RNA sequence: UUUCAGCGACCCCAGCCACAGCGGCCGGUCCGGGGAGCGCCCGGUCCCGUACGUCGCGAUGAGCGCCUCGGCCUC
Numbered sequence: 001u002u003u004c005a006g007c008g009a010c011c012c013c014a015g016c017c018a019c020a021g022c023g024g025c026c027g028g029u030c031c032g033g034g035g036a037g038c039g040c041c042c043g044g045u046c047c048c049g050u051a052c053g054u055c056g057c058g059a060u061g062a063g064c065g066c067c068u069c070g071g072c073c074u075c
Stems, first nucleotide, its partner, number of pairs: 015025003031071001033069001038065002043060001045058001047056001049054001
RNA: ASpks TB sRNA